[Rfam]
RNA sequence: CAUUUGUGAGAACUUUUUGAAUCAACUAGUAUGGUGAUUCAAAAAGUUCUCAACA
Numbered sequence: 001c002a003u004u005u006g007u008g009a010g011a012a013c014u015u016u017u018u019g020a021a022u023c024a025a026c027u028a029g030u031a032u033g034g035u036g037a038u039u040c041a042a043a044a045a046g047u048u049c050u051c052a053a054c055a
Stems, first nucleotide, its partner, number of pairs: 007052018
RNA: Plastid-ccsA-ndhD-2 3UTR RNA